[Rfam]
RNA sequence: UAAUCCCAACGACCGAAUGAACCACGGCAGGAGCGGGGGACCCAGGUAAGCCGCCGGACCGGACUCGUACGUCCUACGUCGUACACAGCGCCGGAACGGCUCGGGGUGAAGCCGUGCCCUUCGGGGCGCGGCCGGGCACCUCCCCGCCCGAACCCGACAGCUCACCUCGCAGGCGACGGAGAGGAAUU
Numbered sequence: 001u002a003a004u005c006c007c008a009a010c011g012a013c014c015g016a017a018u019g020a021a022c023c024a025c026g027g028c029a030g031g032a033g034c035g036g037g038g039g040a041c042c043c044a045g046g047u048a049a050g051c052c053g054c055c056g057g058a059c060c061g062g063a064c065u066c067g068u069a070c071g072u073c074c075u076a077c078g079u080c081g082u083a084c085a086c087a088g089c090g091c092c093g094g095a096a097c098g099g100c101u102c103g104g105g106g107u108g109a110a111g112c113c114g115u116g117c118c119c120u121u122c123g124g125g126g127c128g129c130g131g132c133c134g135g136g137c138a139c140c141u142c143c144c145c146g147c148c149c150g151a152a153c154c155c156g157a158c159a160g161c162u163c164a165c166c167u168c169g170c171a172g173g174c175g176a177c178g179g180a181g182a183g184g185a186a187u188u
Stems, first nucleotide, its partner, number of pairs: 013173002018032001033170006043103001104155003112131006134149004

Annotation
c-di-AMP riboswitch aptamer (ydaO/yuaA leader): a 188-nucleotide sequence.